This 158-nucleotide RNA from Blautia liquoris belongs to the Rfam family "Clostridiales-1 RNA".
The source organism's lineage runs through Bacteria, Bacillati, Lachnospirales, Lachnospiraceae and Blautia.
The family's consensus secondary structure is taken from published work.
RNA sequence: UGAUACCAGGGUCGAGAGGUUACGGUUGUUUUCAUGCUCGCAUGAAAACAACCAUAACUUCGAGACCCGAACAGACAUGAGAAUGCAGUCCGACAGGACGGAAUUCGAAUGCCUGUAGGAUUGUGUGAGCGCUUCGCGCGGAGCAAUCCGUGGUAUCA
Numbered sequence: 001u002g003a004u005a006c007c008a009g010g011g012u013c014g015a016g017a018g019g020u021u022a023c024g025g026u027u028g029u030u031u032u033c034a035u036g037c038u039c040g041c042a043u044g045a046a047a048a049c050a051a052c053c054a055u056a057a058c059u060u061c062g063a064g065a066c067c068c069g070a071a072c073a074g075a076c077a078u079g080a081g082a083a084u085g086c087a088g089u090c091c092g093a094c095a096g097g098a099c100g101g102a103a104u105u106c107g108a109a110u111g112c113c114u115g116u117a118g119g120a121u122u123g124u125g126u127g128a129g130c131g132c133u134u135c136g137c138g139c140g141g142a143g144c145a146a147u148c149c150g151u152g153g154u155a156u157c158a
Stems, first nucleotide, its partner, number of pairs: 001158007010067004016061007024053013071116004076111003081106004088099004118149007129139004